Shown here is a 187-nucleotide RNA sequence from Callithrix jacchus, a member of the family "Connexin-43 internal ribosome entry site (IRES)". This family represents the connexin-43 internal ribosome entry site (IRES) which allows cap independent translation during conditions such as heat shock and stress.
RNA sequence: AACAACAACGUAGUCUUUCAUUAGGGGGAAGGCUGAGGAAAGUACCAAACAGCAGCAGAGUUUUAAACUUUAAAUAGACAGGUCUCAGUGCCUGAACUGGCCAUUUCCUUUUACUUCAUCCUCCAAGGAGUUCAAUCACUUGGCGUGACUUCACUUCUUUUAAGCAAAAGAGUGGUGCCCAGGCAAC
Numbered sequence: 001a002a003c004a005a006c007a008a009c010g011u012a013g014u015c016u017u018u019c020a021u022u023a024g025g026g027g028g029a030a031g032g033c034u035g036a037g038g039a040a041a042g043u044a045c046c047a048a049a050c051a052g053c054a055g056c057a058g059a060g061u062u063u064u065a066a067a068c069u070u071u072a073a074a075u076a077g078a079c080a081g082g083u084c085u086c087a088g089u090g091c092c093u094g095a096a097c098u099g100g101c102c103a104u105u106u107c108c109u110u111u112u113a114c115u116u117c118a119u120c121c122u123c124c125a126a127g128g129a130g131u132u133c134a135a136u137c138a139c140u141u142g143g144c145g146u147g148a149c150u151u152c153a154c155u156u157c158u159u160u161u162a163a164g165c166a167a168a169a170g171a172g173u174g175g176u177g178c179c180c181a182g183g184c185a186a187c
Stems, first nucleotide, its partner, number of pairs: 017130003021126002024123004028117004035110004040106003057085003061081002090097001139183005145178003149170003154164003
The organism belongs to Callithrix, within Eukaryota.